Small nucleolar RNA SNORA61: a 120-nucleotide RNA sequence from Phyllostomus discolor. Pairs were carried over by alignment from the consensus structure, which was predicted with PFOLD. Lineage of the source: Eukaryota > Metazoa > Craniata > Vertebrata > Phyllostomus. Rfam describes the family as follows. ACA61 is a member of the H/ACA class of snoRNA that guide the sites of modification of uridines to pseudouridines. By type it is an H/ACA-box small nucleolar RNA.

RNA sequence: AACCUCCAUGUUCCCUUUCCCAUCAGAUCUGAACACAGGUCUUGGUGGUCAUAAAAGGCGAAAAAGUAAUAUGAAGUUAGCCUCACAGCUCUGUAGCAUGUGGGCUGGUUUUGAACAAGG
Numbered sequence: 001a002a003c004c005u006c007c008a009u010g011u012u013c014c015c016u017u018u019c020c021c022a023u024c025a026g027a028u029c030u031g032a033a034c035a036c037a038g039g040u041c042u043u044g045g046u047g048g049u050c051a052u053a054a055a056a057g058g059c060g061a062a063a064a065a066g067u068a069a070u071a072u073g074a075a076g077u078u079a080g081c082c083u084c085a086c087a088g089c090u091c092u093g094u095a096g097c098a099u100g101u102g103g104g105c106u107g108g109u110u111u112u113g114a115a116c117a118a119g120g
Stems, first nucleotide, its partner, number of pairs: 004060001006058002020048005026041004077108007092098002